The record is an 84-nucleotide RNA from Quercus lobata, which matches "Small nucleolar RNA Z159/U59" in Rfam. It is annotated as a C/D-box small nucleolar RNA. Its Rfam clan is "SNORD59 clan". Gene Ontology terms of the family: RNA processing and nucleolus. Pairs were carried over by alignment from the consensus structure, which was predicted with PFOLD. The family has 10 seed sequences and 1,401 matches in Rfam 15.1. On this family, see Chen et al., Nucleic Acids Res 2003: "The high diversity of snoRNAs in plants: identification and comparative study of 120 snoRNA genes from Oryza sativa". NCBI's taxonomy places the organism under Eukaryota, Streptophytina, Euphyllophyta, Pentapetalae, Quercus.

[Rfam]
RNA sequence: GCCUCUAAUGAUGCGUACAAUAAAACUUUCGUUCUCCUGAGUUUGUUAAUGCUGAAAAUAUUUGGAGACCAGAACUGAAGAGUU
Dot-bracket structure: ..((((........................................................................))))..
Numbered sequence: 001g002c003c004u005c006u007a008a009u010g011a012u013g014c015g016u017a018c019a020a021u022a023a024a025a026c027u028u029u030c031g032u033u034c035u036c037c038u039g040a041g042u043u044u045g046u047u048a049a050u051g052c053u054g055a056a057a058a059u060a061u062u063u064g065g066a067g068a069c070c071a072g073a074a075c076u077g078a079a080g081a082g083u084u
Stems, first nucleotide, its partner, number of pairs: 003082004